RNA sequence: AUAGUUUUACAUUUAAUCCACACAUACAUCGACACGACACGCAGGGUGCUUGCCUUAAAAACAAGUUGCGUUUGCCGGGAUGUAUGGAGGCAUAAC
Numbered sequence: 001a002u003a004g005u006u007u008u009a010c011a012u013u014u015a016a017u018c019c020a021c022a023c024a025u026a027c028a029u030c031g032a033c034a035c036g037a038c039a040c041g042c043a044g045g046g047u048g049c050u051u052g053c054c055u056u057a058a059a060a061a062c063a064a065g066u067u068g069c070g071u072u073u074g075c076c077g078g079g080a081u082g083u084a085u086g087g088a089g090g091c092a093u094a095a096c
Stems, first nucleotide, its partner, number of pairs: 023086008035077002038074002040070004048066005
This 96-nucleotide RNA from Thiothrix caldifontis belongs to the Rfam family "t44 RNA". Taxonomically the source falls in Thiothrix (Bacteria, Gammaproteobacteria, Thiotrichales, Thiotrichaceae). Rfam describes the family as follows. This family consists of a number of bacterial RNA genes of between 135 and 170 bases in length. By type it is a small RNA.